[Rfam]
RNA sequence: AUGUGGCAAGGAUGACGAACCAAUUAGAUGUGCUAAGGAAGCUUAAUGCUUCUUCAUGAGCUUAACCUUUUGAGGCAUUUAUCAACUUCUGAGCUUGCCAGUU
Numbered sequence: 001a002u003g004u005g006g007c008a009a010g011g012a013u014g015a016c017g018a019a020c021c022a023a024u025u026a027g028a029u030g031u032g033c034u035a036a037g038g039a040a041g042c043u044u045a046a047u048g049c050u051u052c053u054u055c056a057u058g059a060g061c062u063u064a065a066c067c068u069u070u071u072g073a074g075g076c077a078u079u080u081a082u083c084a085a086c087u088u089c090u091g092a093g094c095u096u097g098c099c100a101g102u103u
Stems, first nucleotide, its partner, number of pairs: 001103001004100007
Dot-bracket structure: (..(((((((...................................................................................)))))))..)

Small nucleolar RNA Z266: a 103-nucleotide sequence from Kalanchoe fedtschenkoi. For this family Rfam cites "The high diversity of snoRNAs in plants: identification and comparative study of 120 snoRNA genes from Oryza sativa" (Chen et al., Nucleic Acids Res, 2003). It scores 58 bits against the family's covariance model.